[Rfam]
Record summary
DUF805b RNA: a 36-nucleotide sequence from Flavobacterium sp. FPG59. By type it is a cis-regulatory element. Pairs were carried over by alignment from the consensus structure, which is taken from published work. NCBI's taxonomy places the organism under Bacteria, Pseudomonadati, Flavobacteriia, Flavobacteriaceae, Flavobacterium.
RNA sequence: GAGGUGGAAUCUGAAAAACCUUAAUAAGAGUAAGAA
Numbered sequence: 001g002a003g004g005u006g007g008a009a010u011c012u013g014a015a016a017a018a019c020c021u022u023a024a025u026a027a028g029a030g031u032a033a034g035a036a
Stems, first nucleotide, its partner, number of pairs: 002021004010035003
Dot-bracket structure: .((((....[[[.....))))...........]]].